Rfam assigns this 184-nucleotide RNA from Drosophila simulans to the family "R2 RNA element". A search with the family's covariance model found it, with a score of 50 bits. Rfam describes the family as follows. This family represents the 3' UTR region of the R2 retrotransposable element. This family is known to interact with the R2-encoded reverse transcriptase in a reaction known as target primed reverse transcription (TPRT). Rfam classes the family as a cis-regulatory element. For this family Rfam cites "Secondary structure models of the 3' untranslated regions of diverse R2 RNAs" (Ruschak et al., RNA, 2004).
[Rfam]
RNA sequence: ACUUCCUGCUCACCGAUGAAAUACUUUGACUGCUGUCCCGGUGAGCUUGACAAGGACAGAAGAGAUAGCGGAAGUUUUUUAGUACGUUUAGUACGUAGGCAUAAUUCCCCAUCUGAGGGUUGUGUAUCGUGCAUGCCAUCUACGGACGGUAGAUGGUAUCUUUAGACGAUUUCAUUUUCCUAUA
Numbered sequence: 001a002c003u004u005c006c007u008g009c010u011c012a013c014c015g016a017u018g019a020a021a022u023a024c025u026u027u028g029a030c031u032g033c034u035g036u037c038c039c040g041g042u043g044a045g046c047u048u049g050a051c052a053a054g055g056a057c058a059g060a061a062g063a064g065a066u067a068g069c070g071g072a073a074g075u076u077u078u079u080u081a082g083u084a085c086g087u088u089u090a091g092u093a094c095g096u097a098g099g100c101a102u103a104a105u106u107c108c109c110c111a112u113c114u115g116a117g118g119g120u121u122g123u124g125u126a127u128c129g130u131g132c133a134u135g136c137c138a139u140c141u142a143c144g145g146a147c148g149g150u151a152g153a154u155g156g157u158a159u160c161u162u163u164a165g166a167c168g169a170u171u172u173c174a175u176u177u178u179c180c181u182a183u184a
Base pairs, nucleotide, nucleotide: 034058035057036056037055038054078184080182081181082180084177086175091132092131093130094129095128100124101123102122103121104120105119107118108117110115134158135157136156137155138154139153